Repression of heat shock gene expression (ROSE) element: a 92-nucleotide RNA from Dankookia rubra.
The family's consensus secondary structure is taken from published work.
The family's RNA type in Rfam is RNA thermoregulator.
The organism belongs to Dankookia, within Bacteria.
Its family is annotated with response to temperature stimulus and regulation of translation in the Gene Ontology.
This family represents a 5' UTR cis-regulatory element found in heat shock mRNAs and is known as the ROSE (repression of heat shock gene expression) element. The ROSE element is a negative regulator of heat shock gene expression. The secondary structure is thought to be regulated by temperature. This regulation blocks access to the ribosome binding site under normal conditions.
RNA sequence: CCGGACGCCCGGAUGGGGUUCGGUGGGAGCUGCCGGAGAUCCGGCGCCGCCCGUGUCCAUGUUGCUUCGCAAGGAGGAUGUGGAGAUGAGGA
Dot-bracket structure: ((((((.((......)))))))).......((((((....))))))...(.(((..(((((((.(((......))))))))))..))).)..